[Rfam]
RNA sequence: GUGAGAGACGACGAAAUCAUUCGGAUUCCCAUUGAUUUCCUUCGGGAAAGAUGUGAUCAUUAACCAGCUACUUCUGAUUCAU
Numbered sequence: 001g002u003g004a005g006a007g008a009c010g011a012c013g014a015a016a017u018c019a020u021u022c023g024g025a026u027u028c029c030c031a032u033u034g035a036u037u038u039c040c041u042u043c044g045g046g047a048a049a050g051a052u053g054u055g056a057u058c059a060u061u062a063a064c065c066a067g068c069u070a071c072u073u074c075u076g077a078u079u080c081a082u
Stems, first nucleotide, its partner, number of pairs: 001082005